[Rfam]
RNA: c-di-GMP-I riboswitch aptamer
RNA sequence: UUCCGAUAAGAGCAAAGUCAGGGUAACCUGGCGACGCAAAGCUUCAGGCCCUUGAAUUGAGGGUGGCUGAGCUGCCGAA
Numbered sequence: 001u002u003c004c005g006a007u008a009a010g011a012g013c014a015a016a017g018u019c020a021g022g023g024u025a026a027c028c029u030g031g032c033g034a035c036g037c038a039a040a041g042c043u044u045c046a047g048g049c050c051c052u053u054g055a056a057u058u059g060a061g062g063g064u065g066g067c068u069g070a071g072c073u074g075c076c077g078a079a
Base pairs, nucleotide, nucleotide: 012037013036017032018031019030020029021028022027040073041072042071043070045069046068047067048064049063050062051061052060053059054058